A member of the RNA family "Glycine riboswitch aptamer" from Tenuibacillus multivorans, 94 nucleotides long. The source organism's lineage runs through Bacteria, Bacillati, Caryophanales, Bacillaceae and Tenuibacillus.
RNA sequence: AUGAUUAUAAGGGGAGAGACCACACACGUGGCGCCGACGGAGCAAGUACGUUAUGACGUAUGAAUCUCUCAGGCAAAAAGACUCUUGUAUGACG
Numbered sequence: 001a002u003g004a005u006u007a008u009a010a011g012g013g014g015a016g017a018g019a020c021c022a023c024a025c026a027c028g029u030g031g032c033g034c035c036g037a038c039g040g041a042g043c044a045a046g047u048a049c050g051u052u053a054u055g056a057c058g059u060a061u062g063a064a065u066c067u068c069u070c071a072g073g074c075a076a077a078a079a080g081a082c083u084c085u086u087g088u089a090u091g092a093c094g
Stems, first nucleotide, its partner, number of pairs: 006089008020031004033074003036070002040068003046061005

It scores 65 bits against the family's covariance model.